[Rfam]
RNA sequence: CGGCUGUAGCUAUAUCAAUUACCAAUGAGAUGUUUUCUGGCCGGUUGUUGUAUGAGAUCUCUAUGAUAUCUCUGUUGACACAUCUGCUUACCGAGCUUCUCACAUCA
Numbered sequence: 001c002g003g004c005u006g007u008a009g010c011u012a013u014a015u016c017a018a019u020u021a022c023c024a025a026u027g028a029g030a031u032g033u034u035u036u037c038u039g040g041c042c043g044g045u046u047g048u049u050g051u052a053u054g055a056g057a058u059c060u061c062u063a064u065g066a067u068a069u070c071u072c073u074g075u076u077g078a079c080a081c082a083u084c085u086g087c088u089u090a091c092c093g094a095g096c097u098u099c100u101c102a103c104a105u106c107a
Base pairs, nucleotide, nucleotide: 027101028100029099030098032096033095034094039088040087041086043084044083045082047079048078049077050076
Dot-bracket structure: ..........................((((.(((....(((.(((.((((.........................))))..))).))).....))).))))......

Rfam assigns this 107-nucleotide sequence from Jatropha curcas to the family "Small nucleolar RNA snoR109". On this family, see Marker et al., Curr Biol 2002: "Experimental RNomics: identification of 140 candidates for small non-messenger RNAs in the plant Arabidopsis thaliana". The family's RNA type in Rfam is H/ACA-box small nucleolar RNA. Taxonomically the source falls in Jatropha (Eukaryota, Embryophyta, Pentapetalae, rosids). Rfam 15.1 lists 680 matches to the family in 220 species.